Shown here is a 277-nucleotide RNA sequence from Sparus aurata, a member of the family "Small Cajal body specific RNA 6". Rfam 15.1 lists 1,309 matches to the family in 627 species. From the family's description: U88 is small Cajal body specific RNA (scaRNA). scaRNAs are a novel class of small nuclear RNAs which localise to the Cajal bodies. U88 is found associated with both fibrillarin and Gar1p and co-localises with coilin in Cajal bodies. The base pairs follow the family's consensus structure, which is taken from published work. By type it is a small Cajal body RNA. The organism belongs to Sparus, within Eukaryota.
[Rfam]
RNA sequence: GGUCAGUGAUGUGAUGUAAAAGGUCUGAACCUCAGGUCCCCCAUCCUGUCAGCCAUCUUGGAUCCCAGCAGCCCCUGCUCUCUGCUCCCAUCAUGCUCUAGUAGUGCAGUGGUGGUCCCAGGAGCUGCUGACACAGACAGGAUGUGACAUCACAGAGUCUGUACAGAGACACUACAGGCUCAGUGAUGAUGACUGACAUCCAACAGAACCAAUAAGCACCGAGCCUAAGGCUGUGGGGGCGGGGCCUGAGAGCUGAUCUCACUCUUCUGCUGAGACC
Numbered sequence: 001g002g003u004c005a006g007u008g009a010u011g012u013g014a015u016g017u018a019a020a021a022g023g024u025c026u027g028a029a030c031c032u033c034a035g036g037u038c039c040c041c042c043a044u045c046c047u048g049u050c051a052g053c054c055a056u057c058u059u060g061g062a063u064c065c066c067a068g069c070a071g072c073c074c075c076u077g078c079u080c081u082c083u084g085c086u087c088c089c090a091u092c093a094u095g096c097u098c099u100a101g102u103a104g105u106g107c108a109g110u111g112g113u114g115g116u117c118c119c120a121g122g123a124g125c126u127g128c129u130g131a132c133a134c135a136g137a138c139a140g141g142a143u144g145u146g147a148c149a150u151c152a153c154a155g156a157g158u159c160u161g162u163a164c165a166g167a168g169a170c171a172c173u174a175c176a177g178g179c180u181c182a183g184u185g186a187u188g189a190u191g192a193c194u195g196a197c198a199u200c201c202a203a204c205a206g207a208a209c210c211a212a213u214a215a216g217c218a219c220c221g222a223g224c225c226u227a228a229g230g231c232u233g234u235g236g237g238g239g240c241g242g243g244g245c246c247u248g249a250g251a252g253c254u255g256a257u258c259u260c261a262c263u264c265u266u267c268u269g270c271u272g273a274g275a276c277c
Stems, first nucleotide, its partner, number of pairs: 001277004034259005041236003045233001049229001063222002066130007088115007096106001141200005155181009